[Rfam]
RNA sequence: AAUAACCUUCAGGGAUUGGUGCAAUUCCAUACCGGCGGUAAAGCCCGCGAGCCUAUGGCUGAUCUGGUCAAAUUCCAGAGCCGACAGUAUAGUCUGGAUGAGAGAAGGUAGUU
Numbered sequence: 001a002a003u004a005a006c007c008u009u010c011a012g013g014g015a016u017u018g019g020u021g022c023a024a025u026u027c028c029a030u031a032c033c034g035g036c037g038g039u040a041a042a043g044c045c046c047g048c049g050a051g052c053c054u055a056u057g058g059c060u061g062a063u064c065u066g067g068u069c070a071a072a073u074u075c076c077a078g079a080g081c082c083g084a085c086a087g088u089a090u091a092g093u094c095u096g097g098a099u100g101a102g103a104g105a106a107g108g109u110a111g112u113u
Stems, first nucleotide, its partner, number of pairs: 003111001005109006017029003031093002033083002035048004043081002051059003063079005085096003
Annotation
Rfam assigns this 113-nucleotide sequence from Thermoanaerobacterium sp. RBIITD to the family "FMN riboswitch aptamer (RFN element)". Pairs were carried over by alignment from the consensus structure, which is taken from published work.